[Rfam]
RNA sequence: AUAUUUAGCUGGCAGGGGAGUGAAUUUCUCAGGGCAAAUCUUAUCCAUUGCACUCUGGAUGUGCUGACCCCUGUGAUUUCCCCAAAUGUGGGGAAACUUUACAUAAUUUGUGGUAGUGGGGGACUGCAUUAUUGCUUUCCCCUC
Numbered sequence: 001a002u003a004u005u006u007a008g009c010u011g012g013c014a015g016g017g018g019a020g021u022g023a024a025u026u027u028c029u030c031a032g033g034g035c036a037a038a039u040c041u042u043a044u045c046c047a048u049u050g051c052a053c054u055c056u057g058g059a060u061g062u063g064c065u066g067a068c069c070c071c072u073g074u075g076a077u078u079u080c081c082c083c084a085a086a087u088g089u090g091g092g093g094a095a096a097c098u099u100u101a102c103a104u105a106a107u108u109u110g111u112g113g114u115a116g117u118g119g120g121g122g123a124c125u126g127c128a129u130u131a132u133u134g135c136u137u138u139c140c141c142c143u144c
Stems, first nucleotide, its partner, number of pairs: 012102001016030005031072004038065001040063001042061005075099002077096001078094002081091002118143006126135003
Rfam assigns this 144-nucleotide RNA from Enhydra lutris to the family "U1 spliceosomal RNA". The base pairs follow the family's consensus structure, which is taken from published work. The organism belongs to Enhydra lutris, within Eukaryota. The family has 100 seed sequences and 40,184 matches in Rfam 15.1. Clan: U1 clan.